Shown here is a 145-nucleotide RNA sequence from Desulfosporosinus acididurans, a member of the family "c-di-AMP riboswitch aptamer (ydaO/yuaA leader)".
The pairing is the family consensus, mapped onto this sequence.
It scores 107 bits against the family's covariance model.
The source organism's lineage runs through Bacteria, Bacillati, Bacillota, Eubacteriales and Desulfosporosinus.
Gene Ontology terms of the family: regulation of gene expression and cyclic-di-AMP binding.
RNA sequence: UGUCCUAAAUCGCUUAAUUCUUUUUAGAAGCGGGGGAACCAUUUAUCUGGGGUGAAUCCUCCAAAGGAAUUUUUUCCUGUGGGAGGUAGGGUUACUUUCGACCCGAAUCCGUCAGCUAACUUCGUAAGCGUUGAAAGGAAAGAAC
Dot-bracket structure: ..........((((...(((......)))((((((....((......))(((.....((((.....................))))..((((........))))...))).........)))))).))))...............